[Rfam]
A member of the RNA family "tRNA", 72 nucleotides long. The family's RNA type in Rfam is transfer RNA. Gene Ontology term of the family: triplet codon-amino acid adaptor activity. The sequence is in the family's curated seed alignment.
RNA sequence: GCGGAUAUAACUUAGGGGUUAAAGUUGCAGAUUGUGGCUCUGAAAACACGGGUUCGAAUCCCGUUAUUCGCC
Numbered sequence: 001g002c003g004g005a006u007a008u009a010a011c012u013u014a015g016g017g018g019u020u021a022a023a024g025u026u027g028c029a030g031a032u033u034g035u036g037g038c039u040c041u042g043a044a045a046a047c048a049c050g051g052g053u054u055c056g057a058a059u060c061c062c063g064u065u066a067u068u069c070g071c072c
Stems, first nucleotide, its partner, number of pairs: 001071007010025004028042004048064005